[Rfam]
Nucleotides: 109
Stems, first nucleotide, its partner, number of pairs: 006097005011059004016053001017036004043052002065090003071084004
Number, partner (000 for none) and nucleotide at each position: 001000u002000u003000u004000a005000u006097c007096u008095u009094g010093u011059c012058g013057g014056a015000g016053u017036g018035c019034c020033c021000a022000g023000u024000g025000c026000c027000a028000u029000g030000c031000a032000c033020g034019g035018g036017c037000u038000g039000a040000g041000a042000c043052c044051g045000u046000u047000a048000a049000u050000u051044c052043g053016g054000g055000a056014u057013c058012c059011g060000c061000g062000g063000a064000a065090c066089c067088u068000g069000a070000u071084c072083a073082g074081g075000u076000u077000a078000a079000a080000a081074c082073c083072u084071g085000c086000g087000a088067a089066g090065g091000g092000a093010a094009c095008a096007a097006g098000a099000g100000u101000a102000a103000u104000u105000u106000c107000a108000u109000c

The record is a 109-nucleotide RNA from Jejuibacter calystegiae, which matches "TPP riboswitch aptamer (THI element)" in Rfam.
NCBI's taxonomy places the organism under Bacteria, Pseudomonadati, Pseudomonadota, Enterobacterales, Jejuibacter.
Pairs were carried over by alignment from the consensus structure, which is taken from published work.
Rfam links the family to the GO term thiamine pyrophosphate binding.